Rfam assigns this 134-nucleotide RNA sequence from Austrofundulus limnaeus to the family "Small nucleolar RNA SNORA22". It is annotated as an H/ACA-box small nucleolar RNA. Lineage of the source: Eukaryota > Metazoa > Teleostomi > Euacanthomorphacea > Austrofundulus. Gene Ontology terms of the family: RNA processing and nucleolus.
RNA sequence: UUGCACAGCGAACACCCAGGGAUGCUAACGUGGCUCUCUCUGGCCUCACGUCUGUGCUACAUCGACUCUGGUCUUUACCUCUGCAUUUGGAGAGUUCCAUCUCUUCUACGUGUAUUCAGAAGAUCAGGACAAUU
Numbered sequence: 001u002u003g004c005a006c007a008g009c010g011a012a013c014a015c016c017c018a019g020g021g022a023u024g025c026u027a028a029c030g031u032g033g034c035u036c037u038c039u040c041u042g043g044c045c046u047c048a049c050g051u052c053u054g055u056g057c058u059a060c061a062u063c064g065a066c067u068c069u070g071g072u073c074u075u076u077a078c079c080u081c082u083g084c085a086u087u088u089g090g091a092g093a094g095u096u097c098c099a100u101c102u103c104u105u106c107u108a109c110g111u112g113u114a115u116u117c118a119g120a121a122g123a124u125c126a127g128g129a130c131a132a133u134u
Base pairs, nucleotide, nucleotide: 003057004056005055006054007053008052010051016043017042018041019040020039022037024034025033026032059074061072062071063070064069080120081119082118083117084112085111086110089106090105091104092103093102094101
The family has 31 seed sequences and 883 matches in Rfam 15.1. The family's consensus secondary structure was predicted with RNAfold. ACA22 is a member of the H/ACA class of snoRNA that guide the sites of modification of uridines to pseudouridines. The match comes from Rfam's covariance-model search (88 bits).